[Rfam]
RNA sequence: CGGUUGGGAGAGCUCUACUCACAUAAGAGCCUCCGAAGCCGGCCAGGGAAACAUGCUUCUAACAAUGUUGGACGUAGCACAUUAACUGGC
Numbered sequence: 001c002g003g004u005u006g007g008g009a010g011a012g013c014u015c016u017a018c019u020c021a022c023a024u025a026a027g028a029g030c031c032u033c034c035g036a037a038g039c040c041g042g043c044c045a046g047g048g049a050a051a052c053a054u055g056c057u058u059c060u061a062a063c064a065a066u067g068u069u070g071g072a073c074g075u076a077g078c079a080c081a082u083u084a085a086c087u088g089g090c
Stems, first nucleotide, its partner, number of pairs: 001041004010033003013029004042090005054076003058072005